[Rfam]
RNA sequence: UUGCUAGGCAACGAGCUGGGCACUGCCAAGUGUUUGCUGACGCAACCCCCACUGGCUGGGGCUUGGUCAUGGGCAAUCAGCGCAUGCGUGGUACAUUUUUGUCCCCGCUGCCUAUCCAUACUGCGGAACUCCUUGCAGCCUGUUUUGCUCGCUGCUGGUCAGGGGCAAAACUCAUCGGCACUGACAACGCUGUUGUGCUGUCUCGGAAGUAUACACACUUCCCAUGGCUGCUAGGCUGUGCUGCUACCUGGAUCCUGAG
Numbered sequence: 001u002u003g004c005u006a007g008g009c010a011a012c013g014a015g016c017u018g019g020g021c022a023c024u025g026c027c028a029a030g031u032g033u034u035u036g037c038u039g040a041c042g043c044a045a046c047c048c049c050c051a052c053u054g055g056c057u058g059g060g061g062c063u064u065g066g067u068c069a070u071g072g073g074c075a076a077u078c079a080g081c082g083c084a085u086g087c088g089u090g091g092u093a094c095a096u097u098u099u100u101g102u103c104c105c106c107g108c109u110g111c112c113u114a115u116c117c118a119u120a121c122u123g124c125g126g127a128a129c130u131c132c133u134u135g136c137a138g139c140c141u142g143u144u145u146u147g148c149u150c151g152c153u154g155c156u157g158g159u160c161a162g163g164g165g166c167a168a169a170a171c172u173c174a175u176c177g178g179c180a181c182u183g184a185c186a187a188c189g190c191u192g193u194u195g196u197g198c199u200g201u202c203u204c205g206g207a208a209g210u211a212u213a214c215a216c217a218c219u220u221c222c223c224a225u226g227g228c229u230g231c232u233a234g235g236c237u238g239u240g241c242u243g244c245u246a247c248c249u250g251g252a253u254c255c256u257g258a259g
Base pairs, nucleotide, nucleotide: 001045002044003043004042005040007038008037009036010035011034014031017028018027019026049091050090051089052088055087056086059083061081062080063079064076066074067073068072101112103110114253115252116251117250118249123244124243125242126241128239129238131235132234133233135231136230138228139227140226142171143170144169145168146167147166148165149164150163152162153161154160177198182195183194184193185192186191205223206222208220209219
Hepatitis B virus post-transcriptional regulatory element 1151-1410: a 259-nucleotide RNA sequence from Orthohepadnavirus lagothricis. It is annotated as a cis-regulatory element. For this family Rfam cites "A conserved RNA structural element within the hepatitis B virus post-transcriptional regulatory element enhance nuclear export of intronless transcripts and repress the splicing mechanism" (Visootsat et al., Mol Biol Rep, 2015). Part of 500 base pair long HBV PRE, contains nucleotides 1151-1410. Enhances nuclear export of intronless transcripts and represses the splicing mechanism to a comparable degree to that of the full-length PRE. It was proposed to be the core HBV PRE element. contains 3 known regulatory elements: PRE SL-alpha (nucleotides 1292-1321), human La protein binding site (nucleotide 1275-1291) and SRE-1 (nucleotides 1252-1348).